[Rfam]
RNA sequence: UACUGUAGCUAGUUAUCACUUGAACAUAAUCUAGAUGUAGAGUAUAAGGUAGUCGACAUGACUUAUGUGAAACACCUUAACUAGAUUGAUGUUUUUGUUUAUCCUUUAAAUUUGUACUAAUUAUUUAUUCACUGUACAUUUGUAUUUAUAGGGUAACUUAUAAGUAUUUAUGUUAAACAUAAUAAGGAGGUGGUACAAGGAAAUAAUAAGAAGAAAAUGGCUAGUUGGCAGUUUGUCUGGGGCGGACGUUUUUAAUAUAGUAUCAAAAAU
Numbered sequence: 001u002a003c004u005g006u007a008g009c010u011a012g013u014u015a016u017c018a019c020u021u022g023a024a025c026a027u028a029a030u031c032u033a034g035a036u037g038u039a040g041a042g043u044a045u046a047a048g049g050u051a052g053u054c055g056a057c058a059u060g061a062c063u064u065a066u067g068u069g070a071a072a073c074a075c076c077u078u079a080a081c082u083a084g085a086u087u088g089a090u091g092u093u094u095u096u097g098u099u100u101a102u103c104c105u106u107u108a109a110a111u112u113u114g115u116a117c118u119a120a121u122u123a124u125u126u127a128u129u130c131a132c133u134g135u136a137c138a139u140u141u142g143u144a145u146u147u148a149u150a151g152g153g154u155a156a157c158u159u160a161u162a163a164g165u166a167u168u169u170a171u172g173u174u175a176a177a178c179a180u181a182a183u184a185a186g187g188a189g190g191u192g193g194u195a196c197a198a199g200g201a202a203a204u205a206a207u208a209a210g211a212a213g214a215a216a217a218u219g220g221c222u223a224g225u226u227g228g229c230a231g232u233u234u235g236u237c238u239g240g241g242g243c244g245g246a247c248g249u250u251u252u253u254a255a256u257a258u259a260g261u262a263u264c265a266a267a268a269a270u
Stems, first nucleotide, its partner, number of pairs: 002232004009224007018098002022094006028087007045079005052062003102212001104210001106209003235247004248270006
RNA: Bacterial large subunit ribosomal RNA, nucleotides 2161 to 2430